RNA sequence: UUGCUAUUAUGAUUAUCUUAGGACACCUUUGGAAAUAACCAUGGAAAAAAAUGCAUUUUGAGCAAC
Numbered sequence: 001u002u003g004c005u006a007u008u009a010u011g012a013u014u015a016u017c018u019u020a021g022g023a024c025a026c027c028u029u030u031g032g033a034a035a036u037a038a039c040c041a042u043g044g045a046a047a048a049a050a051a052u053g054c055a056u057u058u059u060g061a062g063c064a065a066c
Stems, first nucleotide, its partner, number of pairs: 001065004
A member of the RNA family "Small nucleolar RNA SNORD58" from Terrapene triunguis, 66 nucleotides long. For this family Rfam cites "Site-specific ribose methylation of preribosomal RNA: a novel function for small nucleolar RNAs" (Kiss-Laszlo et al., Cell, 1996). About the family: snoRNA U58 is found in introns 1, 3 and 6 of the ribosomal protein RPL17 gene in humans. The family's consensus secondary structure was predicted with PFOLD.